[Rfam]
RNA sequence: GUUACUUACCAUCACUUCCCCGCAAGGGGAUGGAAAC
Number, nucleotide and partner (000 for none) at each position: 001g000002u000003u000004a000005c000006u000007u000008a000009c000010c000011a000012u000013c000014a000015c000016u000017u030018c029019c028020c027021c026022g000023c000024a000025a000026g021027g020028g019029g018030a017031u000032g000033g000034a000035a000036a000037c000
Description:
This 37-nucleotide sequence from Nostoc sp. PCC 7120 = FACHB-418 belongs to the Rfam family "CRISPR RNA direct repeat element". Rfam's curators put it in the seed alignment. Rfam 15.1 lists 91 matches to the family in 2 species. Lineage of the source: Bacteria > Bacillati > Cyanobacteriota > Nostocales > Nostoc. The base pairs follow the family's consensus structure, which was predicted with WAR.